This 136-nucleotide sequence from Loxodonta africana belongs to the Rfam family "Small nucleolar RNA SNORA9". Its Rfam clan is "SNORA9 clan". Lineage of the source: Eukaryota > Gnathostomata > Teleostomi > Eutheria > Loxodonta. Rfam links the family to the GO terms nucleolus and RNA processing.
[Rfam]
RNA sequence: UUGCAAGCCUCCAGCAUGCUUGGGUCUGGAGUGGCCCUGUGCAUUCCUCCAGUGCUUGCAAAAAACAGUUUUGAAACGGUUUGAGGCCUCGCUCUACACCAUCUACAGAGCAAGGUUAUAGAAAUUUCAGACAGUU
Numbered sequence: 001u002u003g004c005a006a007g008c009c010u011c012c013a014g015c016a017u018g019c020u021u022g023g024g025u026c027u028g029g030a031g032u033g034g035c036c037c038u039g040u041g042c043a044u045u046c047c048u049c050c051a052g053u054g055c056u057u058g059c060a061a062a063a064a065a066c067a068g069u070u071u072u073g074a075a076a077c078g079g080u081u082u083g084a085g086g087c088c089u090c091g092c093u094c095u096a097c098a099c100c101a102u103c104u105a106c107a108g109a110g111c112a113a114g115g116u117u118a119u120a121g122a123a124a125u126u127u128c129a130g131a132c133a134g135u136u
Base pairs, nucleotide, nucleotide: 003059004058005057006056007055008054017043018042019041022037023036024035025034026033072129073128074127075126076125087115088114089113091111092110094108095107096104